[Rfam]
RNA sequence: CGAUUGAUGAUGACACCCUUGUGUGCAUACCUUGGAAAAUCUGAACAAAAUCCGUGAGAACGCUGUACCGUCUCCCCAUCAAAAGUGAGGUCC
Numbered sequence: 001c002g003a004u005u006g007a008u009g010a011u012g013a014c015a016c017c018c019u020u021g022u023g024u025g026c027a028u029a030c031c032u033u034g035g036a037a038a039a040u041c042u043g044a045a046c047a048a049a050a051u052c053c054g055u056g057a058g059a060a061c062g063c064u065g066u067a068c069c070g071u072c073u074c075c076c077c078a079u080c081a082a083a084a085g086u087g088a089g090g091u092c093c
Base pairs, nucleotide, nucleotide: 002092003091004090005089026056027055028054032048033047034046
RNA: Small nucleolar RNA SNORD116
Organism: Physeter macrocephalus